[Rfam]
This 403-nucleotide RNA from Segatella oulorum belongs to the Rfam family "Bacterial RNase P class A". Rfam links the family to the GO terms dimeric ribonuclease P complex, tRNA processing and ribonuclease P activity. The match comes from Rfam's covariance-model search (195 bits).
Nucleotides: 403
Stems, first nucleotide, its partner, number of pairs: 001399009011388001013354007021040002024037005045386003049383005054240004062288002066236005071086004089100004102231002107229005123174002125170008182200006202222001203220007244311004255301005281294005318337003322333004
Number, partner (000 for none) and nucleotide at each position: 001399g002398u003397a004396g005395u006394g007393c008392u009391c010000c011388a012000g013354c014353u015352u016351u017350a018349c019348c020000g021040c022039u023000g024037a025036u026035a027034c028033a029000u030000u031000c032000g033028u034027g035026u036025a037024u038000g039022a040021g041000a042000g043000g044000a045386a046385a047384g048000u049383c050382c051381g052380g053379g054240c055239a056238g057237c058000g059000c060000a061000g062288g063287a064000c065000g066236c067235u068234c069233c070232a071086c072085u073084u074083c075000c076000u077000a078000a079000u080000a081000u082000a083074g084073a085072a086071g087000c088000u089100a090099u091098u092097g093000g094000u095000g096000a097092c098091a099090g100089u101000a102231g103230g104000a105000a106000a107229u108228g109227a110226c111225a112000g113000a114000a115000g116000a117000a118000a119000a120000u121000a122000a123174c124173c125170g126169c127168u128167u129166u130165u131164c132163g133000a134000u135000g136000c137000c138000g139000c140000c141000c142000u143000c144000u145000u146000u147000u148000u149000g150000a151000a152000g153000g154000g155000g156000u157000u158000g159000c160000g161000u162000g163132c164131g165130a166129g167128g168127a169126g170125u171000a172000a173124g174123g175000g176000u177000g178000a179000g180000a181000a182200g183199g184198u185197g186196g187195u188000g189000u190000a191000a192000g193000a194000g195187a196186c197185c198184a199183c200182c201000a202222g203220u204219c205218g206217g207216u208215u209214g210000g211000u212000g213000a214209c215208a216207a217206u218205c219204g220203g221000g222202c223000u224000g225111u226110g227109u228108c229107a230103u231102c232070u233069g234068g235067a236066g237057g238056c239055u240054g241000c242000a243000a244311g245310u246309u247308c248000a249000u250000g251000u252000a253000a254000a255301c256300c257299a258298c259297a260000g261000u262000u263000u264000g265000a266000g267000g268000g269000c270000u271000g272000u273000c274000c275000g276000c277000u278000c279000g280000a281294u282293g283292c284291g285290u286000u287063u288062c289000a290285a291284u292283g293282c294281a295000a296000c297259u298258g299257u300256g301255g302000a303000g304000g305000g306000u307000a308247g309246a310245a311244u312000g313000c314000u315000c316000a317000a318337g319336c320335c321000u322333u323332g324331g325330g326000g327000u328000g329000a330325c331324u332323c333322a334000u335320g336319g337318c338000u339000u340000a341000g342000a343000u344000a345000a346000a347000u348019g349018g350017u351016a352015a353014a354013g355000c356000g357000c358000c359000a360000u361000c362000u363000u364000u365000g366000g367000a368000u369000g370000g371000u372000u373000a374000c375000a376000g377000a378000a379053c380052c381051c382050g383049g384047c385046u386045u387000a388011u389000u390000a391009g392008g393007g394006c395005a396004c397003u398002a399001c400000u401000u402000u403000c
Taxonomically the source falls in Segatella oulorum (Bacteria, Bacteroidia, Prevotellaceae, Segatella). Rfam's curators write: Ribonuclease P (RNase P) is a ubiquitous endoribonuclease, found in archaea, bacteria and eukarya as well as chloroplasts and mitochondria. Its best characterised activity is the generation of mature 5'-ends of tRNAs by cleaving the 5'-leader elements of precursor-tRNAs. Cellular RNase Ps are ribonucleoproteins. RNA from bacterial RNase Ps retains its catalytic activity in the absence of the protein subunit, i.e. it is a ribozyme.